Description:
The record is a 110-nucleotide RNA from Oryza rufipogon, which matches "MIR1861 microRNA precursor family" in Rfam. Pairs were carried over by alignment from the consensus structure, which was predicted with RNAalifold.
[Rfam]
RNA sequence: AUAUUCUUAGGCUCGGUCUAGAGGCAGGAAUUGAGUAGUUGGUGAACUCGCUCUAUGUUGUUCGUUCACUCGCGACGCGGUUCCUGUCCUAAGACCGGGUCUGUGAAUAU
Numbered sequence: 001a002u003a004u005u006c007u008u009a010g011g012c013u014c015g016g017u018c019u020a021g022a023g024g025c026a027g028g029a030a031u032u033g034a035g036u037a038g039u040u041g042g043u044g045a046a047c048u049c050g051c052u053c054u055a056u057g058u059u060g061u062u063c064g065u066u067c068a069c070u071c072g073c074g075a076c077g078c079g080g081u082u083c084c085u086g087u088c089c090u091a092a093g094a095c096c097g098g099g100u101c102u103g104u105g106a107a108u109a110u
Stems, first nucleotide, its partner, number of pairs: 001110006008103005014097006021090001023088011035076002

Its family is annotated with RISC complex and miRNA-mediated post-transcriptional gene silencing in the Gene Ontology. The source organism's lineage runs through Eukaryota, Petrosaviidae, Poaceae, Oryzinae and Oryza.